[Rfam]
RNA: Mammalian CPEB3 ribozyme
RNA sequence: CGUGUCAUCCGUGGGGUCAUUGUAGAAGCGUGCUCGUCGCUCCCCCCUGCCAGCCCUUUUCAGGGCUGCAAUUCUACA
Numbered sequence: 001c002g003u004g005u006c007a008u009c010c011g012u013g014g015g016g017u018c019a020u021u022g023u024a025g026a027a028g029c030g031u032g033c034u035c036g037u038c039g040c041u042c043c044c045c046c047c048u049g050c051c052a053g054c055c056c057u058u059u060u061c062a063g064g065g066c067u068g069c070a071a072u073u074c075u076a077c078a
Base pairs, nucleotide, nucleotide: 013047014046015045016044021078022077023076024075025074026073027072028040029039030038051068052067053066054065055064056063057062